[Rfam]
RNA sequence: GUCAUUCGAUUAACGCUUAGUCCCUGACUAAGCCAACUGGAAG
Number, nucleotide and partner (000 for none) at each position: 001g000002u000003c000004a000005u000006u000007c000008g000009a000010u000011u000012a000013a000014c000015g033016c032017u031018u030019a029020g028021u027022c000023c000024c000025u000026g000027a021028c020029u019030a018031a017032g016033c015034c000035a000036a000037c000038u000039g000040g000041a000042a000043g000
The family of this 43-nucleotide sequence from Citrobacter koseri is "nuoG RNA".
Pairs were carried over by alignment from the consensus structure, which is taken from published work.
Rfam classes the family as a cis-regulatory element.